[Rfam]
RNA: tRNA
Organism: Turnix velox
RNA sequence: GGAUGUAUAGCUCAGUGGGGAGAGCAUCAGACUCCCAAUCUGAGGGUCAGGGGUUCAAGUCCCCAUCCA
Numbered sequence: 001g002g003a004u005g006u007a008u009a010g011c012u013c014a015g016u017g018g019g020g021a022g023a024g025c026a027u028c029a030g031a032c033u034c035c036c037a038a039u040c041u042g043a044g045g046g047u048c049a050g051g052g053g054u055u056c057a058a059g060u061c062c063c064c065a066u067c068c069a
Stems, first nucleotide, its partner, number of pairs: 004069002007066001010025004027043005050064004